RNA sequence: UUGCAAUGAUGAUAAUCCAAAGGUUUCGCUAAUAUUUUUAUCUGAACUAUUAUGCUGAUACACCUUGGCUGACUGAGCAA
Numbered sequence: 001u002u003g004c005a006a007u008g009a010u011g012a013u014a015a016u017c018c019a020a021a022g023g024u025u026u027c028g029c030u031a032a033u034a035u036u037u038u039u040a041u042c043u044g045a046a047c048u049a050u051u052a053u054g055c056u057g058a059u060a061c062a063c064c065u066u067g068g069c070u071g072a073c074u075g076a077g078c079a080a
Base pairs, nucleotide, nucleotide: 001080002079003078004077

Small nucleolar RNA SNORD53/SNORD92: an 80-nucleotide RNA sequence from Plutella xylostella. Taxonomically the source falls in Plutella (Eukaryota, Altocrustacea, Eumetabola, Aparaglossata). Its Rfam clan is "SNORD52 clan". The base pairs follow the family's consensus structure. Rfam links the family to the GO terms RNA processing and nucleolus. For this family Rfam cites "RNomics: an experimental approach that identifies 201 candidates for novel, small, non-messenger RNAs in mouse" (Huttenhofer et al., EMBO J, 2001).